[Rfam]
RNA sequence: GUGUCCUGACCUCAUACUGGCUGUUCCCCUCACCCGAGCUGUGGUGGUGGGGUCUGGGAGUGGACGCAGAUCAACUUACCUCUCAUGUUAGGAGGGCUGCCAAAGGCAUGUGCAAGUCCUUAAAGGCAAGAGAGGACACC
Numbered sequence: 001g002u003g004u005c006c007u008g009a010c011c012u013c014a015u016a017c018u019g020g021c022u023g024u025u026c027c028c029c030u031c032a033c034c035c036g037a038g039c040u041g042u043g044g045u046g047g048u049g050g051g052g053u054c055u056g057g058g059a060g061u062g063g064a065c066g067c068a069g070a071u072c073a074a075c076u077u078a079c080c081u082c083u084c085a086u087g088u089u090a091g092g093a094g095g096g097c098u099g100c101c102a103a104a105g106g107c108a109u110g111u112g113c114a115a116g117u118c119c120u121u122a123a124a125g126g127c128a129a130g131a132g133a134g135g136a137c138a139c140c
Base pairs, nucleotide, nucleotide: 002066003065004064005063006062010057011056026052027051028049030047031046032045033044079135080134081133082132083131084130088125089124092121093120094119095118096117097116098115099113100112102111104109

Overview:
The family of this 140-nucleotide RNA sequence from Ardeotis kori is "Small Cajal body specific RNA 11". A reference for the family is Darzacq et al. (2002), "Cajal body-specific small nuclear RNAs: a novel class of 2'-O-methylation and pseudouridylation guide RNAs", EMBO J. scaRNAs are a specific class of small nuclear RNAs which localise to the Cajal bodies and guide the modification of RNA polymerase II transcribed spliceosomal RNAs U1, U2, U4, U5 and U12.